The family of this 72-nucleotide RNA sequence from Gouania willdenowi is "tRNA".
[Rfam]
RNA sequence: GGGGAUGUAGCUCAGUGGUAGAGCGCAAGCUUAGCAUGUAUGAGGCCAAAGGUUCAAUCCCUGGCAUCUCCA
Numbered sequence: 001g002g003g004g005a006u007g008u009a010g011c012u013c014a015g016u017g018g019u020a021g022a023g024c025g026c027a028a029g030c031u032u033a034g035c036a037u038g039u040a041u042g043a044g045g046c047c048a049a050a051g052g053u054u055c056a057a058u059c060c061c062u063g064g065c066a067u068c069u070c071c072a
Stems, first nucleotide, its partner, number of pairs: 001071007010024004026042002029039002047064001049062001051061002

A reference for the family is Hou (1993), "The tertiary structure of tRNA and the development of the genetic code", Trends Biochem Sci.